[Rfam]
RNA sequence: AUGCCAUGUUAUCUCCGAGCCUUGCCACCUAAAAGGAAAACCUCAUGGUGCACGGCCAACGGGUUUCGCUGGAAACAGCGGAGCCUCCCUUCAGGAAAGGAGCUUGUCCUCGUUAGAGA
Number, nucleotide and partner (000 for none) at each position: 001a000002u000003g113004c112005c000006a110007u000008g000009u000010u000011a105012u000013c102014u101015c100016c099017g000018a000019g056020c055021c054022u000023u052024g051025c050026c000027a049028c048029c047030u000031a000032a000033a000034a043035g042036g041037a000038a000039a000040a000041c036042c035043u034044c000045a000046u000047g029048g028049u027050g025051c024052a023053c000054g021055g020056c019057c000058a000059a000060c000061g086062g085063g084064u083065u082066u081067c080068g079069c078070u077071g076072g000073a000074a000075a000076c071077a070078g069079c068080g067081g066082a065083g064084c063085c062086u061087c095088c094089c000090u000091u000092c000093a000094g088095g087096a000097a000098a000099g016100g015101a014102g013103c000104u000105u011106g000107u000108c000109c000110u006111c000112g004113u003114u000115a000116g000117a000118g000119a000

A member of the RNA family "Molybdenum/Tungsten riboswitch aptamer (Moco RNA motif)" from Pelobacter propionicus, 119 nucleotides long.